The family of this 61-nucleotide RNA from Pristionchus pacificus is "mir-8364 microRNA precursor family". Lineage of the source: Eukaryota > Chromadorea > Rhabditida > Rhabditina > Pristionchus. The family's consensus secondary structure was predicted with RNAalifold. It scores 72 bits against the family's covariance model.
RNA sequence: UCCUCAUUUUGCCUGCUCUCUCGUCGAUCAGACAGACGAGAGAGUAGGCGAAAUGAGGAGA
Numbered sequence: 001u002c003c004u005c006a007u008u009u010u011g012c013c014u015g016c017u018c019u020c021u022c023g024u025c026g027a028u029c030a031g032a033c034a035g036a037c038g039a040g041a042g043a044g045u046a047g048g049c050g051a052a053a054u055g056a057g058g059a060g061a
Stems, first nucleotide, its partner, number of pairs: 001059007010050001012048006019041004